[Rfam]
RNA sequence: GUUUUAUCAAGAGUCGGGGGAGAGAGUUGGCUCUGAGAUCCCGACACCAACCUGGCGGAUACGCCAAGGUGGUCCGGCCUACAGCGAUGAAGG
Numbered sequence: 001g002u003u004u005u006a007u008c009a010a011g012a013g014u015c016g017g018g019g020g021a022g023a024g025a026g027u028u029g030g031c032u033c034u035g036a037g038a039u040c041c042c043g044a045c046a047c048c049a050a051c052c053u054g055g056c057g058g059a060u061a062c063g064c065c066a067a068g069g070u071g072g073u074c075c076g077g078c079c080u081a082c083a084g085c086g087a088u089g090a091a092g093g
Base pairs, nucleotide, nucleotide: 002092003091004090005089006088007087008086013045015043016042017041018040022033023032024031027081029079030078046073047072048071049070051069052068054065055064056063057062077085
RNA: SAM riboswitch aptamer (S box leader)